[Rfam]
RNA sequence: GCGGGUGUAGCUCAGCAGGUUAGAGCGCCAGAUUGUGACUCUGGAGGCCGCCGGUUCAAAUCCGGUCACUCGCC
Numbered sequence: 001g002c003g004g005g006u007g008u009a010g011c012u013c014a015g016c017a018g019g020u021u022a023g024a025g026c027g028c029c030a031g032a033u034u035g036u037g038a039c040u041c042u043g044g045a046g047g048c049c050g051c052c053g054g055u056u057c058a059a060a061u062c063c064g065g066u067c068a069c070u071c072g073c074c
Stems, first nucleotide, its partner, number of pairs: 001073007010026004028044005050066005
Dot-bracket structure: (((((((..((((.........)))).(((((.......))))).....(((((.......)))))))))))).
Shown here is a 74-nucleotide RNA sequence from SAR116 cluster bacterium MED-G04, a member of the family "tRNA". It is annotated as a transfer RNA. Taxonomically the source falls in Puniceispirillales (SeqCode) (Bacteria, Pseudomonadati, Pseudomonadota, Alphaproteobacteria). Pairs were carried over by alignment from the consensus structure, which is taken from published work.